A member of the RNA family "Bacterial RNase P class A" from Emcibacter nanhaiensis, 369 nucleotides long. From the family's description: Ribonuclease P (RNase P) is a ubiquitous endoribonuclease, found in archaea, bacteria and eukarya as well as chloroplasts and mitochondria. It scores 316 bits against the family's covariance model. The base pairs follow the family's consensus structure, which is taken from published work. The source organism's lineage runs through Bacteria, Pseudomonadati, Pseudomonadota, Alphaproteobacteria and Emcibacter.

[Rfam]
RNA sequence: CCAGAUGGCCGGAUGACUGCUGCCCAGCGGGCAGAGGAAAGUCCGGGCACCACGGAAGGACGGUGCCGGUUAACGGCCGGCGGAGGCGACUCCAGGGAAAGUGCCACAGAAAGCAAACCGCCCAAUUGGGUAAGGGUGAAAGGGUGCGGUAAGAGCGCACCGCCUUUCCGGUAACGGAAAGGGCAGGGUAAACCCCACCGGGUGCAAGAUCAAAUAGGAACGACAUGUUCCGGCUUCGGCCGGGCAGCCUGCUUUCGGGGCGUUGUUCGGGUUGAUUGCAGGAGGCGGCUGGCAACAGCCGUCCCAGAUGAAUGGUCAUCGAUCCGGGAAACCGGUGAACAGAACCCGGCUUACAGGCCGUCUGGCGAU
Numbered sequence: 001c002c003a004g005a006u007g008g009c010c011g012g013a014u015g016a017c018u019g020c021u022g023c024c025c026a027g028c029g030g031g032c033a034g035a036g037g038a039a040a041g042u043c044c045g046g047g048c049a050c051c052a053c054g055g056a057a058g059g060a061c062g063g064u065g066c067c068g069g070u071u072a073a074c075g076g077c078c079g080g081c082g083g084a085g086g087c088g089a090c091u092c093c094a095g096g097g098a099a100a101g102u103g104c105c106a107c108a109g110a111a112a113g114c115a116a117a118c119c120g121c122c123c124a125a126u127u128g129g130g131u132a133a134g135g136g137u138g139a140a141a142g143g144g145u146g147c148g149g150u151a152a153g154a155g156c157g158c159a160c161c162g163c164c165u166u167u168c169c170g171g172u173a174a175c176g177g178a179a180a181g182g183g184c185a186g187g188g189u190a191a192a193c194c195c196c197a198c199c200g201g202g203u204g205c206a207a208g209a210u211c212a213a214a215u216a217g218g219a220a221c222g223a224c225a226u227g228u229u230c231c232g233g234c235u236u237c238g239g240c241c242g243g244g245c246a247g248c249c250u251g252c253u254u255u256c257g258g259g260g261c262g263u264u265g266u267u268c269g270g271g272u273u274g275a276u277u278g279c280a281g282g283a284g285g286c287g288g289c290u291g292g293c294a295a296c297a298g299c300c301g302u303c304c305c306a307g308a309u310g311a312a313u314g315g316u317c318a319u320c321g322a323u324c325c326g327g328g329a330a331a332c333c334g335g336u337g338a339a340c341a342g343a344a345c346c347c348g349g350c351u352u353a354c355a356g357g358c359c360g361u362c363u364g365g366c367g368a369u
Stems, first nucleotide, its partner, number of pairs: 001365010011354001012320007020034006039352003043349005048204004057255003061200005066080005081095001082093004096195002101193002103189003118135002120131004143161006162184001163182008208277004218268006247261004284303008